[Rfam]
RNA sequence: UCGUGAAGGCUAACAGGAGAAGAGAGAGAGUACAGCUUUGGCCGGCCAGUUGGUUGGAUCGUAGUAACACAGACUUGCGAUACUCUCCUACUACCUUUUCGCCAAGGCUGUACCCUCUCUCUUCUUCUCUUCGCUUUACGA
Number, nucleotide and partner (000 for none) at each position: 001u000002c000003g000004u000005g000006a000007a000008g000009g134010c000011u000012a131013a130014c000015a128016g127017g126018a125019g124020a123021a122022g121023a120024g119025a118026g117027a116028g115029a000030g113031u112032a111033c110034a109035g108036c107037u106038u105039u104040g103041g102042c101043c000044g000045g000046c000047c000048a000049g000050u000051u000052g000053g000054u000055u000056g000057g000058a000059u000060c000061g000062u000063a000064g000065u000066a000067a000068c000069a000070c000071a000072g000073a000074c000075u000076u000077g000078c000079g000080a000081u000082a000083c000084u000085c000086u000087c000088c000089u000090a000091c000092u000093a000094c000095c000096u000097u000098u000099u000100c000101g042102c041103c040104a039105a038106g037107g036108c035109u034110g033111u032112a031113c030114c000115c028116u027117c026118u025119c024120u023121c022122u021123u020124c019125u018126u017127c016128u015129c000130u013131u012132c000133g000134c009135u000136u000137u000138a000139c000140g000141a000
RNA: MIR529 microRNA precursor family
Organism: Leersia perrieri